The family of this 99-nucleotide RNA from Anguilla anguilla is "Vault RNA". The organism belongs to Anguilla, within Eukaryota. The family's consensus secondary structure is taken from published work. The family's RNA type in Rfam is non-coding RNA gene. Rfam 15.1 lists 2,873 matches to the family in 431 species. Rfam's curators write: This family of RNAs are found as part of the enigmatic vault ribonucleoprotein complex.
[Rfam]
RNA sequence: GCGCCGGUUUAGCUCAGUGGUUACUUCCGUGAUAAAACUGUUGUUUACUCAACCACCUUCUCCGGAGGGUUCGAACCACGGGCGCUGUCCGGCGUUUUG
Numbered sequence: 001g002c003g004c005c006g007g008u009u010u011a012g013c014u015c016a017g018u019g020g021u022u023a024c025u026u027c028c029g030u031g032a033u034a035a036a037a038c039u040g041u042u043g044u045u046u047a048c049u050c051a052a053c054c055a056c057c058u059u060c061u062c063c064g065g066a067g068g069g070u071u072c073g074a075a076c077c078a079c080g081g082g083c084g085c086u087g088u089c090c091g092g093c094g095u096u097u098u099g
Base pairs, nucleotide, nucleotide: 002094003093004092005091006090007089012083013082014081015080017079018078019077020076025075026074027073029071